[Rfam]
RNA sequence: GUAGGUUAUGGUGACAUGAGACCCAUUGGAGUUUUGGGUAAAAUUGUUGGAUCUCUUUGUGCAAUUGCCGGUGUAUUGACCAUUGCUCUCCCAGUUCCAGUUAUUGUUUCCAAU
Dot-bracket structure: ((.((..((((.(((..(((................((((.........(...........)...........)))).................)))..))).))))..)).))
Numbered sequence: 001g002u003a004g005g006u007u008a009u010g011g012u013g014a015c016a017u018g019a020g021a022c023c024c025a026u027u028g029g030a031g032u033u034u035u036g037g038g039u040a041a042a043a044u045u046g047u048u049g050g051a052u053c054u055c056u057u058u059g060u061g062c063a064a065u066u067g068c069c070g071g072u073g074u075a076u077u078g079a080c081c082a083u084u085g086c087u088c089u090c091c092c093a094g095u096u097c098c099a100g101u102u103a104u105u106g107u108u109u110c111c112a113a114u
Stems, first nucleotide, its partner, number of pairs: 001114002004111002008107004013102003018097003037077004050062001